[Rfam]
RNA: Mycobacterium sRNA Ms_AS-1
Nucleotides: 098
Stems, first nucleotide, its partner, number of pairs: 006039001008037004014033002018029004043054003079090004
Number, partner (000 for none) and nucleotide at each position: 001000g002000u003000c004000g005000g006039g007000u008037u009036g010035g011034g012000g013000a014033u015032g016000a017000a018029g019028u020027g021026g022000u023000u024000g025000a026021c027020c028019a029018c030000g031000c032015c033014g034011c035010c036009c037008a038000u039006c040000a041000c042000c043054g044053c045052g046000a047000a048000g049000g050000u051000g052045c053044g054043u055000u056000u057000a058000c059000c060000c061000u062000c063000g064000c065000u066000g067000a068000g069000c070000a071000u072000c073000u074000g075000g076000a077000c078000g079090c080089c081088g082087c083000g084000g085000c086000u087082g088081c089080g090079g091000a092000a093000c094000u095000c096000c097000u098000u